The family of this 248-nucleotide sequence from Anaerofilum hominis is "T-box leader".

RNA sequence: CUCAAACCGCUGAAUAAGAAGAGUAAGCUUUUAAGACGCUUUCAGAGAACCGUUGGGUGGUGCGAAACGGCAAGCGGCUUUCCAGCUGAAUGGACUUAUGAGGGCAGGACGAACGGCCGCGCGCCCAGUAGUGCCUGACGGGAUCUUCACCCGUUAUCAAGGAAGCGCAUAUGAUCGUAUGCGGAGCGAGUGGGCGCGUUUGCGCCAAUCAGGGUGGUACCGCAGAAGCAAAGGCUUUUGUCCCGGUU
Dot-bracket structure: ......((......((((.......((((........(((.........(((((...........)))))..)))........)))).......))))...)).((((((....................)).)))).(((.........))).......................................(((((....))))).....(((.......((((((((....)))))))))))....
Rfam's curators write: Uncharged tRNA acts as the effector for transcription antitermination of genes in the T-box leader family. T-boxes are found upstream of many aminoacyl-tRNA synthetase genes and some amino acid biosynthetic genes usually in Gram-positive bacteria. A search with the family's covariance model found it, with a score of 100 bits. By type it is a cis-regulatory leader. On this family, see Grundy et al., J Bacteriol 1994: "Interaction between the acceptor end of tRNA and the T box stimulates antitermination in the Bacillus subtilis tyrS gene: a new role for the discriminator base". The organism belongs to Anaerofilum, within Bacteria.